RNA: Y RNA
RNA sequence: GGCUGUAAACAGUGGUGUUCACAAUGAAUUGAUCAGUUACAGAUUUCUUUGUUCCUUCUCCACUCCCACUUCCUUACUUGAGUAGCCUUAA
Numbered sequence: 001g002g003c004u005g006u007a008a009a010c011a012g013u014g015g016u017g018u019u020c021a022c023a024a025u026g027a028a029u030u031g032a033u034c035a036g037u038u039a040c041a042g043a044u045u046u047c048u049u050u051g052u053u054c055c056u057u058c059u060c061c062a063c064u065c066c067c068a069c070u071u072c073c074u075u076a077c078u079u080g081a082g083u084a085g086c087c088u089u090a091a
Stems, first nucleotide, its partner, number of pairs: 001087005007079002009075001011070005017065001023053003027049002